[Rfam]
This 106-nucleotide RNA from Flavobacterium haoranii belongs to the Rfam family "SAM riboswitch aptamer (S box leader)". Rfam links the family to the GO term regulation of gene expression. The organism belongs to Flavobacterium, within Bacteria. The family's consensus secondary structure is taken from published work.

RNA sequence: UUGUUAUCACGAAAGCUGGAGGGAAUAGACCCUGCGAAAGCUUAGCAACCCUACACUUGUAGAAGGUGCUACAUUCUAUUUCGAUUUUAUCGGAAAAAGAUAACGU
Numbered sequence: 001u002u003g004u005u006a007u008c009a010c011g012a013a014a015g016c017u018g019g020a021g022g023g024a025a026u027a028g029a030c031c032c033u034g035c036g037a038a039a040g041c042u043u044a045g046c047a048a049c050c051c052u053a054c055a056c057u058u059g060u061a062g063a064a065g066g067u068g069c070u071a072c073a074u075u076c077u078a079u080u081u082c083g084a085u086u087u088u089a090u091c092g093g094a095a096a097a098a099g100a101u102a103a104c105g106u
Stems, first nucleotide, its partner, number of pairs: 002105007013043005021032003026078004044070004049066002051062004074098001079095006